[Rfam]
RNA sequence: UUGGGGGUUUCCGAAAACCCAUUUAACAGAGUAGGAA
Number, nucleotide and partner (000 for none) at each position: 001u000002u021003g020004g019005g018006g000007g000008u000009u000010u036011c035012c034013g000014a000015a000016a000017a000018c005019c004020c003021a002022u000023u000024u000025a000026a000027c000028a000029g000030a000031g000032u000033a000034g012035g011036a010037a000